[Rfam]
Shown here is a 354-nucleotide RNA from Citrobacter freundii, a member of the family "isrL Hfq binding RNA".
On this family, see Padalon-Brauch et al., Nucleic Acids Res 2008: "Small RNAs encoded within genetic islands of Salmonella typhimurium show host-induced expression and role in virulence".
The source organism's lineage runs through Bacteria, Pseudomonadati, Pseudomonadota, Gammaproteobacteria and Citrobacter freundii complex.
RNA sequence: UUUCGCCACGUCGAUCUGCUCAUUUUGCGAGAGCAGUUUGCCGAUCGAUUCACGGAUCGCAGGAUGCCAGCUUACGGCGCGGCUUACCGCAUCGUUAAGUGUCAGGUUGCCGGGCGCGGCGGCGCUCAGCGGGAGUUCGGCCACCGAUCCAUCCAGAGAGGGGAGCAUCUGGCUGGUGGCCAGCCCUUCCGGCGUAAUGAUUUGCGGUUCAUCUUCGGCAUUCACCUGUAAGGAACAGAGCGUGAAUGCCAGCAGCAACGUAACAGAGGCGACAUUUCUCAUCGUAUAUCCCUUUCAAAAUACGGCAGUGACGACUGUUAUUGCCCCGGACGUCAUAGCAUCCGGGGCUGUUGU
Numbered sequence: 001u002u003u004c005g006c007c008a009c010g011u012c013g014a015u016c017u018g019c020u021c022a023u024u025u026u027g028c029g030a031g032a033g034c035a036g037u038u039u040g041c042c043g044a045u046c047g048a049u050u051c052a053c054g055g056a057u058c059g060c061a062g063g064a065u066g067c068c069a070g071c072u073u074a075c076g077g078c079g080c081g082g083c084u085u086a087c088c089g090c091a092u093c094g095u096u097a098a099g100u101g102u103c104a105g106g107u108u109g110c111c112g113g114g115c116g117c118g119g120c121g122g123c124g125c126u127c128a129g130c131g132g133g134a135g136u137u138c139g140g141c142c143a144c145c146g147a148u149c150c151a152u153c154c155a156g157a158g159a160g161g162g163g164a165g166c167a168u169c170u171g172g173c174u175g176g177u178g179g180c181c182a183g184c185c186c187u188u189c190c191g192g193c194g195u196a197a198u199g200a201u202u203u204g205c206g207g208u209u210c211a212u213c214u215u216c217g218g219c220a221u222u223c224a225c226c227u228g229u230a231a232g233g234a235a236c237a238g239a240g241c242g243u244g245a246a247u248g249c250c251a252g253c254a255g256c257a258a259c260g261u262a263a264c265a266g267a268g269g270c271g272a273c274a275u276u277u278c279u280c281a282u283c284g285u286a287u288a289u290c291c292c293u294u295u296c297a298a299a300a301u302a303c304g305g306c307a308g309u310g311a312c313g314a315c316u317g318u319u320a321u322u323g324c325c326c327c328g329g330a331c332g333u334c335a336u337a338g339c340a341u342c343c344g345g346g347g348c349u350g351u352u353g354u
Stems, first nucleotide, its partner, number of pairs: 003272001005270002008195002011192003017035005036057005043051002059189001061187003065183001067132002070100003074096001076093002079090003102128001104126002106123006139181008149172003152163003198235001201232003205228003211222001243267001247262003323348008332339002
Dot-bracket structure: ..(.((.((.(((...(((((.........)))))(((((..((.....)).))))).(.(((.(.((.(((.(.((.(((......))).))..).))).(.((((((((......)))))).)).)..))......((((((((..((((((......)))......))).)))))))).).))).)))).))..(..(((.(((...(..........)...))).)))..).......(...(((..........)))....).)).)..................................................((((((((.((....)).))))))))......

It is annotated as a small RNA. Pairs were carried over by alignment from the consensus structure, which was predicted with RNAalifold.